[Rfam]
RNA sequence: UGGUGCCCAAUGUGGGGCUUGGAUACUGGGGGACAUCAUGAGGGUCUGACAAUGGAAGAAAAGGGGUGCACACCUGCUCAAAUAAUUCAGAGAUGCUGCGGGAGCCUGCCAUGACCGAGCCGAAGGUAAGUUGGUCUUUCAAGUAUGGGGUAAGAAUUAAGUCAGCAUCAGAUUUAUGUGAUACAGUUAGGAGAAGCUCUACAGGCAAGAGGCGUAUAGGUUAAAACUGAGGAUUUAUUUCAUUUCUUUGAUUUUGUAAAGGACAUUUGUCCCU
Numbered sequence: 001u002g003g004u005g006c007c008c009a010a011u012g013u014g015g016g017g018c019u020u021g022g023a024u025a026c027u028g029g030g031g032g033a034c035a036u037c038a039u040g041a042g043g044g045u046c047u048g049a050c051a052a053u054g055g056a057a058g059a060a061a062a063g064g065g066g067u068g069c070a071c072a073c074c075u076g077c078u079c080a081a082a083u084a085a086u087u088c089a090g091a092g093a094u095g096c097u098g099c100g101g102g103a104g105c106c107u108g109c110c111a112u113g114a115c116c117g118a119g120c121c122g123a124a125g126g127u128a129a130g131u132u133g134g135u136c137u138u139u140c141a142a143g144u145a146u147g148g149g150g151u152a153a154g155a156a157u158u159a160a161g162u163c164a165g166c167a168u169c170a171g172a173u174u175u176a177u178g179u180g181a182u183a184c185a186g187u188u189a190g191g192a193g194a195a196g197c198u199c200u201a202c203a204g205g206c207a208a209g210a211g212g213c214g215u216a217u218a219g220g221u222u223a224a225a226a227c228u229g230a231g232g233a234u235u236u237a238u239u240u241c242a243u244u245u246c247u248u249u250g251a252u253u254u255u256g257u258a259a260a261g262g263a264c265a266u267u268u269g270u271c272c273c274u
Stems, first nucleotide, its partner, number of pairs: 006031003012026003036052001039049001084127001086125001087123002094117002097113002100110002136150001138149004158201002161197002209249004214244001218236005259274001261272004
The record is a 274-nucleotide sequence from Nannospalax galili, which matches "Mason-Pfizer monkey virus packaging signal" in Rfam. The family has 9 seed sequences and 2,921 matches in Rfam 15.1. Taxonomically the source falls in Nannospalax (Eukaryota, Gnathostomata, Sarcopterygii, Rodentia).